[Rfam]
RNA sequence: CCGUUAAGUGAUGACGUGUCAGACUGAGUGUCAUGUCAUCACGCCUUGUUACAUACGCCUCAUUUCCAUGUCAUCUUCUUCAAUGAUGUGGCAAUGGCGUGUUAGUGAUUGGGUGUGAUGACGUGGAACUUCGUCUACCACAUCAUCACUUAAUUGAA
Numbered sequence: 001c002c003g004u005u006a007a008g009u010g011a012u013g014a015c016g017u018g019u020c021a022g023a024c025u026g027a028g029u030g031u032c033a034u035g036u037c038a039u040c041a042c043g044c045c046u047u048g049u050u051a052c053a054u055a056c057g058c059c060u061c062a063u064u065u066c067c068a069u070g071u072c073a074u075c076u077u078c079u080u081c082a083a084u085g086a087u088g089u090g091g092c093a094a095u096g097g098c099g100u101g102u103u104a105g106u107g108a109u110u111g112g113g114u115g116u117g118a119u120g121a122c123g124u125g126g127a128a129c130u131u132c133g134u135c136u137a138c139c140a141c142a143u144c145a146u147c148a149c150u151u152a153a154u155u156g157a158a
Stems, first nucleotide, its partner, number of pairs: 001156001003154012016141003021136004026131004031126016048109005055102004070087005
MIR4371 microRNA precursor family: a 158-nucleotide RNA from Glycine max. Gene Ontology terms of the family: RISC complex and miRNA-mediated post-transcriptional gene silencing. Pairs were carried over by alignment from the consensus structure, which was predicted with RNAalifold. The match comes from Rfam's covariance-model search (122 bits).